[Rfam]
RNA sequence: GUUGAGAGGAAUGUUGUCUGGCUCGAGGUCAUGGAGGUUGAUAUUUCUUUUGAUUUGUGUUUCUUUUCCAGGGAAAUUAAACCCUGAAUGACUCUCGGACCAGGCUUCAUUCCCCCCAAC
Numbered sequence: 001g002u003u004g005a006g007a008g009g010a011a012u013g014u015u016g017u018c019u020g021g022c023u024c025g026a027g028g029u030c031a032u033g034g035a036g037g038u039u040g041a042u043a044u045u046u047c048u049u050u051u052g053a054u055u056u057g058u059g060u061u062u063c064u065u066u067u068c069c070a071g072g073g074a075a076a077u078u079a080a081a082c083c084c085u086g087a088a089u090g091a092c093u094c095u096c097g098g099a100c101c102a103g104g105c106u107u108c109a110u111u112c113c114c115c116c117c118a119a120c
Base pairs, nucleotide, nucleotide: 001120002119003118004117006115008113009112010111011110012109013108016105017104018103019102020101021100024097025096026095027094028093

A member of the RNA family "mir-166 microRNA precursor family" from Sesamum indicum, 120 nucleotides long. The family has 31 seed sequences and 2,599 matches in Rfam 15.1. The organism belongs to Sesamum, within Eukaryota. Its family is annotated with RISC complex and miRNA-mediated post-transcriptional gene silencing in the Gene Ontology. The literature on the family includes a 2001 paper in Cell by Ambros, "microRNAs: tiny regulators with great potential". This family represents the plant microRNA (miRNA) precursor mir-166.